[Rfam]
RNA sequence: CACUCACCUCACUCACUCGGAUCGUCCGGCACGUUCCUGCCGGUGGAGGGACUCACUU
Numbered sequence: 001c002a003c004u005c006a007c008c009u010c011a012c013u014c015a016c017u018c019g020g021a022u023c024g025u026c027c028g029g030c031a032c033g034u035u036c037c038u039g040c041c042g043g044u045g046g047a048g049g050g051a052c053u054c055a056c057u058u
Stems, first nucleotide, its partner, number of pairs: 009050002013046003026043006
This 58-nucleotide sequence from Rhodococcus ruber belongs to the Rfam family "msiK RNA".
By type it is a cis-regulatory element.
It scores 45 bits against the family's covariance model.
The base pairs follow the family's consensus structure, which is taken from published work.